The record is an 81-nucleotide RNA sequence from Methylobacterium gnaphalii, which matches "chrB-a RNA" in Rfam. Rfam 15.1 lists 347 matches to the family in 339 species. It scores 73 bits against the family's covariance model. The organism belongs to Methylobacterium, within Bacteria. By type it is a cis-regulatory element.
[Rfam]
RNA sequence: CAGAUGGGGAAUGCGAUCUCCUCACGAGGCUAAGGCCGAAGCAUCGCGUCCGCUCUGCACCUUCUGCAAGGACGCGUCAUG
Dot-bracket structure: ....((((((........)))))).....................((((((..................))))))......